[Rfam]
RNA: FMN riboswitch aptamer (RFN element)
Organism: Ruminococcus sp. CAG:57
RNA sequence: AAUGUGUUUCAGGGGUGGUGAAAUUCCACACCGGAGGUGAUCGAAUAGUAUUCGUAAGUCCUCGACCGCAGAAAUGCGCUGAUUCGGUGAAAAUCCGAAACCGACGGUAAAGUCCGGAUGGAAGAAACGACAG
Numbered sequence: 001a002a003u004g005u006g007u008u009u010c011a012g013g014g015g016u017g018g019u020g021a022a023a024u025u026c027c028a029c030a031c032c033g034g035a036g037g038u039g040a041u042c043g044a045a046u047a048g049u050a051u052u053c054g055u056a057a058g059u060c061c062u063c064g065a066c067c068g069c070a071g072a073a074a075u076g077c078g079c080u081g082a083u084u085c086g087g088u089g090a091a092a093a094u095c096c097g098a099a100a101c102c103g104a105c106g107g108u109a110a111a112g113u114c115c116g117g118a119u120g121g122a123a124g125a126a127a128c129g130a131c132a133g
Base pairs, nucleotide, nucleotide: 005129006128007127008126009125010124016028017027018026030113031112032103033102034063035062036061037060058101059100067078068077083099084098085097086096087095105116106115107114